[Rfam]
RNA sequence: GCCAAAUGAUGUUUAUUUGAAAAAGGAGCACUUCAGUGCAAAGACGACUCUUAAUCUAUCACCCAUGACUGAUGGCU
Numbered sequence: 001g002c003c004a005a006a007u008g009a010u011g012u013u014u015a016u017u018u019g020a021a022a023a024a025g026g027a028g029c030a031c032u033u034c035a036g037u038g039c040a041a042a043g044a045c046g047a048c049u050c051u052u053a054a055u056c057u058a059u060c061a062c063c064c065a066u067g068a069c070u071g072a073u074g075g076c077u
Stems, first nucleotide, its partner, number of pairs: 001076004028039004
Dot-bracket structure: ((((.......................((((....)))).................................)))).
RNA: Small nucleolar RNA SNORD83